Rfam assigns this 143-nucleotide RNA sequence from Triplophysa rosa to the family "Small nucleolar RNA SNORA79". By type it is an H/ACA-box small nucleolar RNA. Rfam's curators write: ACA65 (SNORA79) is a member of the H/ACA class of snoRNAs that guide the sites of modification of uridines to pseudouridines. This snoRNA was identified by computational screening and its expression in mouse experimentally verified by Northern blot and primer extension analysis. It scores 76 bits against the family's covariance model. Rfam 15.1 lists 944 matches to the family in 375 species. The family's consensus secondary structure was predicted with RNAalifold. A reference for the family is Schattner et al. (2006), "A computational screen for mammalian pseudouridylation guide H/ACA RNAs", RNA.
[Rfam]
RNA sequence: UGACGAUUGUUCCUCCCGCUGCUCUGAGCUCGUGCAGAUCGGGAUUUUAGAUCGUCAUAGAGAAAGCUGAGUCUACUUCACCCAGCGUGUCGCCGCCUCGCGGCUGCUCGUGGCCUCGCUGGAUUUUGCAGGACCCUACAGCU
Numbered sequence: 001u002g003a004c005g006a007u008u009g010u011u012c013c014u015c016c017c018g019c020u021g022c023u024c025u026g027a028g029c030u031c032g033u034g035c036a037g038a039u040c041g042g043g044a045u046u047u048u049a050g051a052u053c054g055u056c057a058u059a060g061a062g063a064a065a066g067c068u069g070a071g072u073c074u075a076c077u078u079c080a081c082c083c084a085g086c087g088u089g090u091c092g093c094c095g096c097c098u099c100g101c102g103g104c105u106g107c108u109c110g111u112g113g114c115c116u117c118g119c120u121g122g123a124u125u126u127u128g129c130a131g132g133a134c135c136c137u138a139c140a141g142c143u
Stems, first nucleotide, its partner, number of pairs: 001057008014044005020036003071134004082122006089115001091113001095109001